[Rfam]
RNA sequence: AUAGUUUGAGGUGGGAAAUGGUUCCCCAUACGCUAUUAAUUUAGUUAACAGAGAUACAGGAUACACCGCCCUGUCAAACUAA
Numbered sequence: 001a002u003a004g005u006u007u008g009a010g011g012u013g014g015g016a017a018a019u020g021g022u023u024c025c026c027c028a029u030a031c032g033c034u035a036u037u038a039a040u041u042u043a044g045u046u047a048a049c050a051g052a053g054a055u056a057c058a059g060g061a062u063a064c065a066c067c068g069c070c071c072u073g074u075c076a077a078a079c080u081a082a
Base pairs, nucleotide, nucleotide: 002081003080004079005078006077007076008075011029012028013027014026015025019068020067021066022065031051032045033044034043035042056074057073058072059071060070